[Rfam]
RNA: glmS glucosamine-6-phosphate activated ribozyme aptamer
RNA sequence: AAACACUUUAAAGCGCCUGGACUAAGCUUGGACGGAAUUGCUUAGUUGACGAGGAGGAGGUUUAUCGAAGUUCGGCGGAUGCCUCCCGGCUGCACGUGCACAGCCGCAAGAAUUUCUAUCUUAAAACAGCGGGGUAACCUGUUGGACAAAGGAUAGGAACUGCACACAU
Numbered sequence: 001a002a003a004c005a006c007u008u009u010a011a012a013g014c015g016c017c018u019g020g021a022c023u024a025a026g027c028u029u030g031g032a033c034g035g036a037a038u039u040g041c042u043u044a045g046u047u048g049a050c051g052a053g054g055a056g057g058a059g060g061u062u063u064a065u066c067g068a069a070g071u072u073c074g075g076c077g078g079a080u081g082c083c084u085c086c087c088g089g090c091u092g093c094a095c096g097u098g099c100a101c102a103g104c105c106g107c108a109a110g111a112a113u114u115u116c117u118a119u120c121u122u123a124a125a126a127c128a129g130c131g132g133g134g135u136a137a138c139c140u141g142u143u144g145g146a147c148a149a150a151g152g153a154u155a156g157g158a159a160c161u162g163c164a165c166a167c168a169u
Stems, first nucleotide, its partner, number of pairs: 020047008056086005065075004087106006113159007127144007